[Rfam]
RNA sequence: CCCGCCACUGUACCUGUCUGUGCCCGUGACUUGUACAUUCCAGUGGUGGCUGAGAGAAACACCAGCUCUAGGAAGCAGAGUGAGCCUUCCUCCAUAGGUCACUCUGUGCCAACAGGCCUGGGACAAGC
Numbered sequence: 001c002c003c004g005c006c007a008c009u010g011u012a013c014c015u016g017u018c019u020g021u022g023c024c025c026g027u028g029a030c031u032u033g034u035a036c037a038u039u040c041c042a043g044u045g046g047u048g049g050c051u052g053a054g055a056g057a058a059a060c061a062c063c064a065g066c067u068c069u070a071g072g073a074a075g076c077a078g079a080g081u082g083a084g085c086c087u088u089c090c091u092c093c094a095u096a097g098g099u100c101a102c103u104c105u106g107u108g109c110c111a112a113c114a115g116g117c118c119u120g121g122g123a124c125a126a127g128c
Base pairs, nucleotide, nucleotide: 005046006045007044008043009042010041018033020030021028022027062121063120064119065118066116067115071110072109076106077105078104079103080102081101085098086097087096

The record is a 128-nucleotide RNA from Polypterus senegalus, which matches "Small nucleolar RNA SNORA65" in Rfam. The organism belongs to Polypterus, within Eukaryota. Rfam describes the family as follows. U65 belongs to the H/ACA class of snoRNAs which are thought to guide the sites of modification of uridines to pseudouridines. A search with the family's covariance model found it, with a score of 76 bits. Rfam 15.1 lists 1,089 matches to the family in 619 species. Rfam links the family to the GO terms RNA processing and nucleolus. A reference for the family is Huttenhofer et al. (2001), "RNomics: an experimental approach that identifies 201 candidates for novel, small, non-messenger RNAs in mouse", EMBO J. The base pairs follow the family's consensus structure, which was predicted with RNAalifold.